Shown here is an 86-nucleotide sequence, a member of the family "chrB-a RNA". The family has 163 seed sequences and 347 matches in Rfam 15.1. By type it is a cis-regulatory element. The sequence is in the family's curated seed alignment.

RNA sequence: CGCAAGGGGUUGACCGCGAUCGCCCCGUGAGGCUUUGGCCGAAGCAUCGCGUCUCCGAACCUCGAACAGAGGGAGGGACGUUCAUG
Numbered sequence: 001c002g003c004a005a006g007g008g009g010u011u012g013a014c015c016g017c018g019a020u021c022g023c024c025c026c027g028u029g030a031g032g033c034u035u036u037g038g039c040c041g042a043a044g045c046a047u048c049g050c051g052u053c054u055c056c057g058a059a060c061c062u063c064g065a066a067c068a069g070a071g072g073g074a075g076g077g078a079c080g081u082u083c084a085u086g
Stems, first nucleotide, its partner, number of pairs: 006026005049081006